The record is a 129-nucleotide sequence from Haliaeetus albicilla, which matches "Small nucleolar RNA SNORA65" in Rfam. The organism belongs to Haliaeetus, within Eukaryota. The family's consensus secondary structure was predicted with RNAalifold. Its family is annotated with nucleolus and RNA processing in the Gene Ontology.
RNA sequence: CCUGCCACUGUACCUGCCUUGUAAUUCAGUGACUAGGACAGUCCAGAGGUGAGCUGACAGAAAAUGCCAACUUAGGAAACAGGAUUAUUCUUCUUGUGGGUAACUUUGUGCCAAAGUCUGGGGACAGGC
Number, nucleotide and partner (000 for none) at each position: 001c000002c000003u000004g000005c049006c048007a000008c046009u045010g044011u000012a000013c000014c000015u000016g000017c037018c036019u035020u000021g033022u031023a030024a000025u000026u000027c000028a000029g000030u023031g022032a000033c021034u000035a019036g018037g017038a000039c000040a000041g000042u000043c000044c010045a009046g008047a000048g006049g005050u000051g000052a000053g000054c000055u000056g000057a000058c000059a000060g000061a000062a000063a000064a000065u122066g000067c121068c120069a119070a117071c116072u115073u114074a000075g112076g111077a000078a000079a000080c108081a107082g106083g105084a000085u103086u000087a000088u100089u099090c098091u000092u000093c000094u000095u000096g000097u000098g090099g089100g088101u000102a000103a085104c000105u083106u082107u081108g080109u000110g000111c076112c075113a000114a073115a072116g071117u070118c000119u069120g068121g067122g065123g000124a000125c000126a000127g000128g000129c000